[Rfam]
RNA: Ribosomal protein L10 leader
RNA sequence: UAAAGUUGAAUAUGCUUACCGUAGACAGUAGGUGCCCCAUAAAGGCUUAAUUUCCUACCGAGGUGUUGUGAUAGAAUAAGGAUGGUUGCUCCUGACGUUCGUGUGGACAAUCAUCAUUUAUCAGGCCUUCGUGAUUCUACGGAGGCUUUUUACAUGCCUAG
Number, nucleotide and partner (000 for none) at each position: 001u000002a000003a000004a000005g000006u000007u000008g000009a000010a000011u000012a000013u000014g000015c000016u000017u000018a000019c000020c000021g000022u000023a000024g000025a000026c000027a000028g058029u057030a056031g055032g054033u000034g046035c045036c044037c000038c000039a000040u000041a000042a000043a000044g036045g035046c034047u000048u000049a000050a000051u000052u000053u000054c032055c031056u030057a029058c028059c000060g000061a000062g000063g000064u000065g000066u000067u000068g000069u000070g000071a000072u000073a000074g000075a000076a000077u000078a000079a000080g000081g000082a000083u000084g000085g000086u000087u000088g000089c000090u000091c000092c000093u000094g000095a000096c000097g000098u000099u000100c000101g000102u000103g000104u000105g000106g000107a000108c000109a000110a000111u000112c000113a000114u000115c000116a000117u000118u000119u000120a000121u000122c000123a000124g000125g146126c145127c144128u143129u142130c141131g140132u139133g138134a000135u000136u000137c000138u133139a132140c131141g130142g129143a128144g127145g126146c125147u000148u000149u000150u000151u000152a000153c000154a000155u000156g000157c000158c000159u000160a000161g000